[Rfam]
RNA sequence: UCCGGCCUGUGGUACAGUCCUAUUUAUGCACGACAUUUUGAGUAAAGUAGUUAAAAUUUAAAGCGUUAUCCUUGAUAGCUCUUCUCUGACUAAUUUCCUUUCUAGUGCCUCCAUAAGUAACUGAUGACCGGCUAUAGUACUGCCCAUGGCGGCUUAAAUUUUUUAUUGAAGGAAUUAGACAUGUCUAACAUGAUCAAAGGUCAAGUGAAGUGGUUCAACGAGUCUAAAGGUUUUGGUUUCAUCACUCCAGCAGACGGCAGCAAAGAUGUGUUCGUACACUUCUCCGCUAUCCAAGAUCAAGGUUUCAAGACCCUGGCUGAAGGCCAGAACGUACAGUUCUCUAUUGAGAACGGUGCUAAAGGUCCGUCAGCGGCUAACGUUACCGCUAUCUAAUCGGCUUUUUGCUGAUUAAAAAGACCCGCUGAGGCGGGUUUUUUUACG
Numbered sequence: 001u002c003c004g005g006c007c008u009g010u011g012g013u014a015c016a017g018u019c020c021u022a023u024u025u026a027u028g029c030a031c032g033a034c035a036u037u038u039u040g041a042g043u044a045a046a047g048u049a050g051u052u053a054a055a056a057u058u059u060a061a062a063g064c065g066u067u068a069u070c071c072u073u074g075a076u077a078g079c080u081c082u083u084c085u086c087u088g089a090c091u092a093a094u095u096u097c098c099u100u101u102c103u104a105g106u107g108c109c110u111c112c113a114u115a116a117g118u119a120a121c122u123g124a125u126g127a128c129c130g131g132c133u134a135u136a137g138u139a140c141u142g143c144c145c146a147u148g149g150c151g152g153c154u155u156a157a158a159u160u161u162u163u164u165a166u167u168g169a170a171g172g173a174a175u176u177a178g179a180c181a182u183g184u185c186u187a188a189c190a191u192g193a194u195c196a197a198a199g200g201u202c203a204a205g206u207g208a209a210g211u212g213g214u215u216c217a218a219c220g221a222g223u224c225u226a227a228a229g230g231u232u233u234u235g236g237u238u239u240c241a242u243c244a245c246u247c248c249a250g251c252a253g254a255c256g257g258c259a260g261c262a263a264a265g266a267u268g269u270g271u272u273c274g275u276a277c278a279c280u281u282c283u284c285c286g287c288u289a290u291c292c293a294a295g296a297u298c299a300a301g302g303u304u305u306c307a308a309g310a311c312c313c314u315g316g317c318u319g320a321a322g323g324c325c326a327g328a329a330c331g332u333a334c335a336g337u338u339c340u341c342u343a344u345u346g347a348g349a350a351c352g353g354u355g356c357u358a359a360a361g362g363u364c365c366g367u368c369a370g371c372g373g374c375u376a377a378c379g380u381u382a383c384c385g386c387u388a389u390c391u392a393a394u395c396g397g398c399u400u401u402u403u404g405c406u407g408a409u410u411a412a413a414a415a416g417a418c419c420c421g422c423u424g425a426g427g428c429g430g431g432u433u434u435u436u437u438u439a440c441g
Base pairs, nucleotide, nucleotide: 004020005019007017008016009015027249028248030246047239050238052236057228058227059226065224067222070220072218073217074216075215077214079213080212084183087181088180090178097172098171099170100169101168105128106127142153143152144151185200186199253345254344256342257341265273266272278332279331281329283328284327286325287323288322291316292315293314295312351366352365353364355363356362357361369387370386371385372384373383392410393409394408396406397405398404411438412437413436414435415434416433417432418431419430420429421428422427
RNA: cspA thermoregulator